[Rfam]
Shown here is a 77-nucleotide sequence from Dissostichus mawsoni, a member of the family "Small nucleolar RNA SNORD121A". The family has 26 seed sequences and 881 matches in Rfam 15.1. A search with the family's covariance model found it, with a score of 45 bits.
RNA sequence: GCCUGGAGAUAAUGAUGACGUUAUCAAGCACAUAUCCUAAUCUGUUAUGUGGAAAUAAUCGACUGAAUCUCCCAUUC
Numbered sequence: 001g002c003c004u005g006g007a008g009a010u011a012a013u014g015a016u017g018a019c020g021u022u023a024u025c026a027a028g029c030a031c032a033u034a035u036c037c038u039a040a041u042c043u044g045u046u047a048u049g050u051g052g053a054a055a056u057a058a059u060c061g062a063c064u065g066a067a068u069c070u071c072c073c074a075u076u077c
Stems, first nucleotide, its partner, number of pairs: 001077001004074003007070004